Description: Rfam assigns this 135-nucleotide RNA from Polypterus senegalus to the family "Small nucleolar RNA U109". Lineage of the source: Eukaryota > Eumetazoa > Gnathostomata > Actinopterygii > Polypterus. Pairs were carried over by alignment from the consensus structure, which was predicted with WAR. The family has 26 seed sequences and 1,405 matches in Rfam 15.1. The literature on the family includes a 1981 paper in Biochem Biophys Res Commun by Reddy et al., "Pseudouridine residues in the 5'-terminus of uridine-rich nuclear RNA I (U1 RNA)".

[Rfam]
RNA sequence: AAGCUGUGGUUAUUUCAUCUUUCUGUGCUCAUAGAGAGUUUGACUUGAUGGAUCACAUGCUAGAAUAAUUUUGGAGUCAACAGGGCCACCUUCCUUUCAGUACAGGUUGAGUGGUAGUAUAACACUCCAACAGCA
Numbered sequence: 001a002a003g004c005u006g007u008g009g010u011u012a013u014u015u016c017a018u019c020u021u022u023c024u025g026u027g028c029u030c031a032u033a034g035a036g037a038g039u040u041u042g043a044c045u046u047g048a049u050g051g052a053u054c055a056c057a058u059g060c061u062a063g064a065a066u067a068a069u070u071u072u073g074g075a076g077u078c079a080a081c082a083g084g085g086c087c088a089c090c091u092u093c094c095u096u097u098c099a100g101u102a103c104a105g106g107u108u109g110a111g112u113g114g115u116a117g118u119a120u121a122a123c124a125c126u127c128c129a130a131c132a133g134c135a
Stems, first nucleotide, its partner, number of pairs: 003060002005057003015042001017040001019038004073128004085115002089111001090109001093106003